[Rfam]
RNA: Repression of heat shock gene expression (ROSE) element
Nucleotides: 105
Stems, first nucleotide, its partner, number of pairs: 001023006008017002037061007046052001064103005071096007079089003
Number, partner (000 for none) and nucleotide at each position: 001023c002022c003021g004020g005019g006018c007000g008017c009016c010000g011000u012000g013000u014000u015000c016009g017008g018006g019005u020004c021003c022002g023001g024000u025000g026000g027000g028000a029000c030000a031000u032000a033000g034000a035000g036000g037061g038060c039059g040058u041057c042056g043055g044000c045000u046052c047000u048000u049000u050000c051000c052046g053000u054000a055043c056042c057041g058040g059039c060038g061037c062000a063000a064103c065102u066101c067100a068099u069000g070000c071096c072095c073094a074093g075092a076091u077090c078000g079089c080088u081087u082000c083000a084000a085000u086000g087081g088080a089079g090077g091076a092075u093074u094073u095072g096071g097000a098000g099068a100067u101066g102065a103064g104000a105000a